RNA sequence: UUUCAUGCGAGGAUGAGAAAUAAGAGUUUCGGACUAGAGUUUCUGAUCUGGCUUGACCAGUUUGACGAGACAUCUCUUGGCUGGCUGAGCAUGAAA
Dot-bracket structure: ((((((((...............................(.((....((((.....))))...)).).....................))))))))
Background
This 96-nucleotide RNA from Marchantia polymorpha belongs to the Rfam family "Small nucleolar RNA Z157/R69/R10". A search with the family's covariance model found it, with a score of 57 bits. On this family, see Chen et al., Nucleic Acids Res 2003: "The high diversity of snoRNAs in plants: identification and comparative study of 120 snoRNA genes from Oryza sativa". The family's consensus secondary structure was predicted with PFOLD. Its family is annotated with nucleolus and RNA processing in the Gene Ontology.